[Rfam]
This 174-nucleotide sequence from Falsibacillus albus belongs to the Rfam family "glmS glucosamine-6-phosphate activated ribozyme aptamer".
The source organism's lineage runs through Bacteria, Bacillati, Bacilli, Caryophanales and Falsibacillus.
Rfam links the family to the GO terms catalytic activity and regulation of gene expression.
About the family: This entry contains a glucosamine-6-phosphate activated ribozyme that is found in the mRNA for GlmS. GlmS is an enzyme that uses fructose-6-phosphate and glutamine to generate glucosamine-6-phosphate. The ribozyme catalyses self cleavage of the glmS mRNA that is thought to regulate GlmS activity.
Pairs were carried over by alignment from the consensus structure, which is taken from published work.
The family's RNA type in Rfam is riboswitch.
RNA sequence: AACUAUAUAAAAGCGCCUGAACUAAAUCGUAUGUCCGAAAGAAACGGUUUAGUUGACGAGGAGGAGGUUUAUCGAUUAAUCGGCGGAUGCCUCCCGGUUGCCACACACGACCGAAAUCUUUUUCUUAAAACAUUGAAGGCGACUCAGUGUACAAAGGAGAAAGAAUGUGAAUCA
Numbered sequence: 001a002a003c004u005a006u007a008u009a010a011a012a013g014c015g016c017c018u019g020a021a022c023u024a025a026a027u028c029g030u031a032u033g034u035c036c037g038a039a040a041g042a043a044a045c046g047g048u049u050u051a052g053u054u055g056a057c058g059a060g061g062a063g064g065a066g067g068u069u070u071a072u073c074g075a076u077u078a079a080u081c082g083g084c085g086g087a088u089g090c091c092u093c094c095c096g097g098u099u100g101c102c103a104c105a106c107a108c109g110a111c112c113g114a115a116a117u118c119u120u121u122u123u124c125u126u127a128a129a130a131c132a133u134u135g136a137a138g139g140c141g142a143c144u145c146a147g148u149g150u151a152c153a154a155a156g157g158a159g160a161a162a163g164a165a166u167g168u169g170a171a172u173c174a
Stems, first nucleotide, its partner, number of pairs: 020054008029045001063094005072083004095113006117164007131149006138143001